RNA sequence: GUUCUACUGCGGCGUUGGUGACUGCCAAUAACGUUUUAUGAUCUAUGCUUCGACUAAACGGGAGUCGUGAUGUCUCGAUGGCAGUAGACUGAGCCUGUCUUGGCAACAAGCGUGUACUCAGAAACUUUAAAUCGAGGCCGAGAGUCCCACCUGGAUUUAUCCAGGUCAAAAACUGAGGUAAGACGGCGUUGUGGGGAACUU
Numbered sequence: 001g002u003u004c005u006a007c008u009g010c011g012g013c014g015u016u017g018g019u020g021a022c023u024g025c026c027a028a029u030a031a032c033g034u035u036u037u038a039u040g041a042u043c044u045a046u047g048c049u050u051c052g053a054c055u056a057a058a059c060g061g062g063a064g065u066c067g068u069g070a071u072g073u074c075u076c077g078a079u080g081g082c083a084g085u086a087g088a089c090u091g092a093g094c095c096u097g098u099c100u101u102g103g104c105a106a107c108a109a110g111c112g113u114g115u116a117c118u119c120a121g122a123a124a125c126u127u128u129a130a131a132u133c134g135a136g137g138c139c140g141a142g143a144g145u146c147c148c149a150c151c152u153g154g155a156u157u158u159a160u161c162c163a164g165g166u167c168a169a170a171a172a173c174u175g176a177g178g179u180a181a182g183a184c185g186g187c188g189u190u191g192u193g194g195g196g197a198a199c200u201u
Stems, first nucleotide, its partner, number of pairs: 003198001005196001007194009018184002035172003039168006060148003065143002068140002073137007084125002089121005

A member of the RNA family "6S / SsrS RNA" from Thermoleptolyngbya sichuanensis, 201 nucleotides long. It scores 76 bits against the family's covariance model. It is annotated as a non-coding RNA gene. The base pairs follow the family's consensus structure, which is taken from published work. The literature on the family includes a 2000 paper in Cell by Wassarman and Storz, "6S RNA regulates E. coli RNA polymerase activity".